[Rfam]
A member of the RNA family "Small nucleolar RNA SNORD66" from Motacilla alba, 72 nucleotides long. The family has 20 seed sequences and 1,346 matches in Rfam 15.1. It scores 32 bits against the family's covariance model. Rfam describes the family as follows. snoRNA HBII-142 is part of the C/D family of snoRNAs. It is the human orthologue of the mouse MBII-142 snoRNA and is predicted to guide 2'O-ribose methylation of small 18S rRNA at residue C1272. For this family Rfam cites "RNomics: an experimental approach that identifies 201 candidates for novel, small, non-messenger RNAs in mouse" (Huttenhofer et al., EMBO J, 2001).
RNA sequence: UUCCUCUGGUGAGCUCUUGUUAGUGCCACCUUCCUCACUGUGAUAAGAUCAAGGGAUUGGGAUUUGGGGGAA
Numbered sequence: 001u002u003c004c005u006c007u008g009g010u011g012a013g014c015u016c017u018u019g020u021u022a023g024u025g026c027c028a029c030c031u032u033c034c035u036c037a038c039u040g041u042g043a044u045a046a047g048a049u050c051a052a053g054g055g056a057u058u059g060g061g062a063u064u065u066g067g068g069g070g071a072a
Base pairs, nucleotide, nucleotide: 001072002071003070004069
Dot-bracket structure: ((((................................................................))))